[Rfam]
RNA sequence: UGGGCUGAUCGAAAGAUCUUGGUCCAACCGAAUGGGCGGGGAGUCCCCCC
Numbered sequence: 001u002g003g004g005c006u007g008a009u010c011g012a013a014a015g016a017u018c019u020u021g022g023u024c025c026a027a028c029c030g031a032a033u034g035g036g037c038g039g040g041g042a043g044u045c046c047c048c049c050c
Base pairs, nucleotide, nucleotide: 001026002025003024004023005022006021007018008017009016010015
RNA: DUF3800-XI RNA